Description: Shown here is a 73-nucleotide RNA from Citricoccus muralis, a member of the family "tRNA". NCBI's taxonomy places the organism under Bacteria, Bacillati, Actinomycetota, Micrococcaceae, Citricoccus. Pairs were carried over by alignment from the consensus structure, which is taken from published work. By type it is a transfer RNA.
RNA sequence: GCCCCAGUAGCUCAGUGGAUAGAGCAGGAGCCUUCUAAUCUCUUGGUCGGGGGUUCGACUCCCUCCUGGGGCA
Numbered sequence: 001g002c003c004c005c006a007g008u009a010g011c012u013c014a015g016u017g018g019a020u021a022g023a024g025c026a027g028g029a030g031c032c033u034u035c036u037a038a039u040c041u042c043u044u045g046g047u048c049g050g051g052g053g054u055u056c057g058a059c060u061c062c063c064u065c066c067u068g069g070g071g072c073a
Stems, first nucleotide, its partner, number of pairs: 001072007010025004027043004049065005
Gene Ontology term of the family: triplet codon-amino acid adaptor activity.